[Rfam]
A member of the RNA family "Small nucleolar RNA SNORA11" from Myotis lucifugus, 129 nucleotides long.
RNA sequence: GGGGUGUGCUCAGAGCAGGGUGCCUGAAGAAAUGGCUCCUCUGUUUACAACACACCCAACAGGAACUGGGGUCACUGUGACAAGGGGCACAAAACGUGUGGCCUUCCUGUGCACAAGCACCCUACAAGU
Numbered sequence: 001g002g003g004g005u006g007u008g009c010u011c012a013g014a015g016c017a018g019g020g021u022g023c024c025u026g027a028a029g030a031a032a033u034g035g036c037u038c039c040u041c042u043g044u045u046u047a048c049a050a051c052a053c054a055c056c057c058a059a060c061a062g063g064a065a066c067u068g069g070g071g072u073c074a075c076u077g078u079g080a081c082a083a084g085g086g087g088c089a090c091a092a093a094a095c096g097u098g099u100g101g102c103c104u105u106c107c108u109g110u111g112c113a114c115a116a117g118c119a120c121c122c123u124a125c126a127a128g129u
Base pairs, nucleotide, nucleotide: 002057003056004055005054006053007052008051013046014045015044016043017042018041019040020039022036023035024034069122070121071120072119076115077114078113081111082110084104085103086102088100089099090098091097

Rfam 15.1 lists 2,014 matches to the family in 202 species. By type it is an H/ACA-box small nucleolar RNA. The family's consensus secondary structure was predicted with RNAalifold.